[Rfam]
RNA sequence: GAAAUAGGUGGCUAGGGUUCCGGUUCUUUGCUGAAAAAGAACGUCUGGUCCGAGAGCAACCGACCUCAGCGUAUUCACAGCGCAGGUUACACGGCGGGACAAAAGCCCGGGAGAC
Numbered sequence: 001g002a003a004a005u006a007g008g009u010g011g012c013u014a015g016g017g018u019u020c021c022g023g024u025u026c027u028u029u030g031c032u033g034a035a036a037a038a039g040a041a042c043g044u045c046u047g048g049u050c051c052g053a054g055a056g057c058a059a060c061c062g063a064c065c066u067c068a069g070c071g072u073a074u075u076c077a078c079a080g081c082g083c084a085g086g087u088u089a090c091a092c093g094g095c096g097g098g099a100c101a102a103a104a105g106c107c108c109g110g111g112a113g114a115c
Stems, first nucleotide, its partner, number of pairs: 007061003011057002015051002020048002022045001023042006062088005069081001090110001092113001096108003
Guanidine-I riboswitch aptamer: a 115-nucleotide RNA sequence from Venatorbacter sp. C2-1. Rfam links the family to the GO term regulation of gene expression. The literature on the family includes a 2017 paper in Mol Cell by Nelson et al., "Metabolism of Free Guanidine in Bacteria Is Regulated by a Widespread Riboswitch Class". Pairs were carried over by alignment from the consensus structure. Rfam 15.1 lists 1,509 matches to the family in 1,281 species.